This 68-nucleotide RNA from Sporolactobacillus laevolacticus belongs to the Rfam family "Bacillaceae-1 RNA". Pairs were carried over by alignment from the consensus structure, which is taken from published work. A search with the family's covariance model found it, with a score of 63 bits. It is annotated as a small RNA.
RNA sequence: UAAGAAGGAUCUUCUGCUAGAAACGUGCACGUCCUGUGCACAACGCAGAAGUCACCGCAUCCUGCGGA
Numbered sequence: 001u002a003a004g005a006a007g008g009a010u011c012u013u014c015u016g017c018u019a020g021a022a023a024c025g026u027g028c029a030c031g032u033c034c035u036g037u038g039c040a041c042a043a044c045g046c047a048g049a050a051g052u053c054a055c056c057g058c059a060u061c062c063u064g065c066g067g068a
Stems, first nucleotide, its partner, number of pairs: 011051007026040005055067004